The family of this 66-nucleotide RNA from Castor canadensis is "Small nucleolar RNA SNORD42". The base pairs follow the family's consensus structure, which was predicted with PFOLD. The match comes from Rfam's covariance-model search (71 bits). The source organism's lineage runs through Eukaryota, Opisthokonta, Tetrapoda, Theria and Castor. Rfam describes the family as follows. snoRNA U42 is found in intron 3 of the ribosomal protein L23a (RPL23a) gene in humans and is also present in mice. It is annotated as a C/D-box small nucleolar RNA.

RNA sequence: GCGCAGAUGAUGGAAAAUUUCACUAUUUGGAAAAGAAUGACAUGAACAAAGGAACCACUGAUGCGC
Numbered sequence: 001g002c003g004c005a006g007a008u009g010a011u012g013g014a015a016a017a018u019u020u021c022a023c024u025a026u027u028u029g030g031a032a033a034a035g036a037a038u039g040a041c042a043u044g045a046a047c048a049a050a051g052g053a054a055c056c057a058c059u060g061a062u063g064c065g066c
Stems, first nucleotide, its partner, number of pairs: 001066005